[Rfam]
RNA sequence: AUCAGGCCGGACCUCGUCCGCGCCAGGCCGGCGCCGCCGCAUCACGGGAAGGUGAAUCCGGUCCGACGCCCGUCGAUAACCUGGCGUCACG
Numbered sequence: 001a002u003c004a005g006g007c008c009g010g011a012c013c014u015c016g017u018c019c020g021c022g023c024c025a026g027g028c029c030g031g032c033g034c035c036g037c038c039g040c041a042u043c044a045c046g047g048g049a050a051g052g053u054g055a056a057u058c059c060g061g062u063c064c065g066a067c068g069c070c071c072g073u074c075g076a077u078a079a080c081c082u083g084g085c086g087u088c089a090c091g
Base pairs, nucleotide, nucleotide: 005024006023007022008020009019010018026063027062028061029060030059031058032054033053034052035051065088066087067086068085069084070083